Source information
The record is a 140-nucleotide RNA from Struthidea cinerea, which matches "Small nucleolar RNA SNORA8" in Rfam. Gene Ontology terms of the family: RNA processing and nucleolus. It is annotated as an H/ACA-box small nucleolar RNA. A search with the family's covariance model found it, with a score of 58 bits. Pairs were carried over by alignment from the consensus structure, which was predicted with RNAfold.
Nucleotides: 140
Base pairs, nucleotide, nucleotide: 002062003061004060006058007057018053019048020047021046023044024043027039028038029037065129067127069125070124071123073120074119081109082108083107084106085105
Number, partner (000 for none) and nucleotide at each position: 001000u002062g003061c004060a005000g006058u007057g008000u009000u010000a011000c012000a013000g014000u015000a016000c017000c018053u019048g020047c021046a022000c023044c024043c025000a026000g027039c028038a029037g030000c031000c032000u033000u034000c035000u036000c037029c038028u039027g040000g041000g042000g043024g044023g045000a046021u047020g048019u049000u050000a051000a052000a053018a054000a055000a056000g057007c058006a059000g060004u061003g062002c063000u064000a065129c066000u067127g068000c069125a070124g071123u072000g073120c074119a075000a076000u077000g078000u079000u080000u081109g082108g083107c084106a085105u086000c087000c088000u089000c090000g091000g092000u093000u094000u095000u096000c097000c098000u099000c100000c101000a102000g103000c104000u105085g106084u107083g108082u109081c110000u111000g112000u113000u114000a115000a116000a117000c118000c119074u120073g121000g122000u123071a124070u125069u126000u127067u128000u129065g130000c131000u132000g133000a134000a135000a136000c137000a138000g139000u140000c

Clan: SNORA8 clan.